Rfam assigns this 206-nucleotide RNA sequence from Streptomyces sp. SAJ15 to the family "c-di-AMP riboswitch aptamer (ydaO/yuaA leader)".
RNA sequence: AACGCCUAGUCCUGCCGCCGGCCGAGGAGUGUCCACGAACACACGACGGCAGGAGCGGGGGACCCAGGUAAGUCGCCGGGUCGCGCCACGAAGCGCGACACGGCUUGGGGUGAAGACGUGCCGCGGCCCAUGAGGCCGCUCAGGGCACGGCCGGGCAACUCCAGCCCGAACCCGACAGCUCACCUCGCAGGCGUGGGAGAGGAACA
Number, nucleotide and partner (000 for none) at each position: 001a000002a000003c193004g192005c191006c190007u000008a000009g000010u054011c053012c052013u051014g050015c049016c048017g047018c000019c000020g000021g000022c000023c000024g000025a000026g000027g000028a000029g000030u000031g000032u000033c000034c000035a000036c000037g000038a000039a000040c000041a000042c000043a000044c000045g000046a000047c017048g016049g015050c014051a013052g012053g011054a010055g188056c187057g186058g185059g184060g183061g000062a000063c000064c000065c107066a106067g105068g104069u103070a000071a000072g000073u000074c000075g000076c000077c000078g000079g000080g000081u000082c000083g000084c000085g000086c000087c000088a000089c000090g000091a000092a000093g000094c000095g000096c000097g000098a000099c000100a000101c000102g000103g069104c068105u067106u066107g065108g173109g172110g171111u000112g000113a000114a000115g000116a000117c149118g148119u147120g146121c145122c144123g000124c000125g000126g000127c000128c000129c000130a000131u000132g000133a000134g000135g000136c000137c000138g000139c000140u000141c000142a000143g000144g122145g121146c120147a119148c118149g117150g000151c000152c000153g167154g166155g165156c164157a000158a000159c000160u000161c000162c000163a000164g156165c155166c154167c153168g000169a000170a000171c110172c109173c108174g000175a000176c000177a000178g000179c000180u000181c000182a000183c060184c059185u058186c057187g056188c055189a000190g006191g005192c004193g003194u000195g000196g000197g000198a000199g000200a000201g000202g000203a000204a000205c000206a000